[Rfam]
RNA: Alphaproteobacterial sRNA ar7
RNA sequence: UACCGGCAAACGAAUAAGCCGCUGUCUGGAAUUUCGGCUCGUCCCCCGCCGUCUCCAGACGAUGGACUUGGACCCCCCGCCCCCUCAGUGGUCCUUGUCCGAAAAACGAGCCGUCAUGACCUUCCCCCGGUCGUGGCGGCUUUUC
Numbered sequence: 001u002a003c004c005g006g007c008a009a010a011c012g013a014a015u016a017a018g019c020c021g022c023u024g025u026c027u028g029g030a031a032u033u034u035c036g037g038c039u040c041g042u043c044c045c046c047c048g049c050c051g052u053c054u055c056c057a058g059a060c061g062a063u064g065g066a067c068u069u070g071g072a073c074c075c076c077c078c079g080c081c082c083c084c085u086c087a088g089u090g091g092u093c094c095u096u097g098u099c100c101g102a103a104a105a106a107c108g109a110g111c112c113g114u115c116a117u118g119a120c121c122u123u124c125c126c127c128c129g130g131u132c133g134u135g136g137c138g139g140c141u142u143u144u145c
Base pairs, nucleotide, nucleotide: 025059026058027057028056029055030054036050037049038048063101064100065099066098067097070094071093072092073091109141111139112138113137114136115135116134117133118132119131120130121129